[Rfam]
RNA: 6S / SsrS RNA
Organism: Alicycliphilus denitrificans
RNA sequence: AGCCGUCUGCGGUGUUGGCGGGCUUUAUAUUUCCUUGAACCAAUGCUCAUUGAGCACGGGCUUGGUACAUUGCCAGGUGAGCGUGAUCAUCUCGCGUCAGAUGAACCCAACGCCUGGUUGCCCUCGCCCACCUGAACCCCCGGUUCAGGAUGCCGGUCCGUUGGCAUCCGCAGACACCU
Numbered sequence: 001a002g003c004c005g006u007c008u009g010c011g012g013u014g015u016u017g018g019c020g021g022g023c024u025u026u027a028u029a030u031u032u033c034c035u036u037g038a039a040c041c042a043a044u045g046c047u048c049a050u051u052g053a054g055c056a057c058g059g060g061c062u063u064g065g066u067a068c069a070u071u072g073c074c075a076g077g078u079g080a081g082c083g084u085g086a087u088c089a090u091c092u093c094g095c096g097u098c099a100g101a102u103g104a105a106c107c108c109a110a111c112g113c114c115u116g117g118u119u120g121c122c123c124u125c126g127c128c129c130a131c132c133u134g135a136a137c138c139c140c141c142g143g144u145u146c147a148g149g150a151u152g153c154c155g156g157u158c159c160g161u162u163g164g165c166a167u168c169c170g171c172a173g174a175c176a177c178c179u
Stems, first nucleotide, its partner, number of pairs: 002178001005175007012167004018162001032150003036147006058129003064123002069119001072118007083106002088103005